[Rfam]
Record summary
Rfam assigns this 86-nucleotide sequence from Noviherbaspirillum autotrophicum to the family "c-di-GMP-I riboswitch aptamer". Rfam links the family to the GO term cyclic-di-GMP binding.

RNA sequence: UCUCGACAUUGGCAAACCCGUUGAAAAGCGGGGACGCAAAGCUUCUGGUCUACUGGCCUGGCGCCUAUGACAGCAGAGCUGCACAG
Numbered sequence: 001u002c003u004c005g006a007c008a009u010u011g012g013c014a015a016a017c018c019c020g021u022u023g024a025a026a027a028g029c030g031g032g033g034a035c036g037c038a039a040a041g042c043u044u045c046u047g048g049u050c051u052a053c054u055g056g057c058c059u060g061g062c063g064c065c066u067a068u069g070a071c072a073g074c075a076g077a078g079c080u081g082c083a084c085a086g
Stems, first nucleotide, its partner, number of pairs: 012037002017032006040080004045076003048071003055065003